[Rfam]
RNA: Enterobacterial sRNA STnc230
Organism: Citrobacter freundii
RNA sequence: UCAUCUCGCUAUUAGACGCAAUGAUAAAAGGUGUUAAUGGACCAUAACAAAAGUCUCCCAUUGUGGGGAGACUUUUUAAGCUGUU
Numbered sequence: 001u002c003a004u005c006u007c008g009c010u011a012u013u014a015g016a017c018g019c020a021a022u023g024a025u026a027a028a029a030g031g032u033g034u035u036a037a038u039g040g041a042c043c044a045u046a047a048c049a050a051a052a053g054u055c056u057c058c059c060a061u062u063g064u065g066g067g068g069a070g071a072c073u074u075u076u077u078a079a080g081c082u083g084u085u
Stems, first nucleotide, its partner, number of pairs: 049077004053072007